[Rfam]
Shown here is a 106-nucleotide sequence from Sodalis ligni, a member of the family "Yersinia sRNA 224". NCBI's taxonomy places the organism under Bacteria, Pseudomonadati, Gammaproteobacteria, Bruguierivoracaceae, Sodalis.
RNA sequence: GAGUUUGUUGACAAAGUGCCUGGUCGGGAUAGGCUGCCAGAUCGUAAACACGCCGUGAAUCCAUCCCUGGAGGCUCGAUCCGCGCCAUCCCUGGCGCGGACGGUUU
Numbered sequence: 001g002a003g004u005u006u007g008u009u010g011a012c013a014a015a016g017u018g019c020c021u022g023g024u025c026g027g028g029a030u031a032g033g034c035u036g037c038c039a040g041a042u043c044g045u046a047a048a049c050a051c052g053c054c055g056u057g058a059a060u061c062c063a064u065c066c067c068u069g070g071a072g073g074c075u076c077g078a079u080c081c082g083c084g085c086c087a088u089c090c091c092u093g094g095c096g097c098g099g100a101c102g103g104u105u106u
Base pairs, nucleotide, nucleotide: 013106014105015104017102018101020028021027031075032074040065041064042063044062046060050056051055080099081098082097083096084095085094086093087092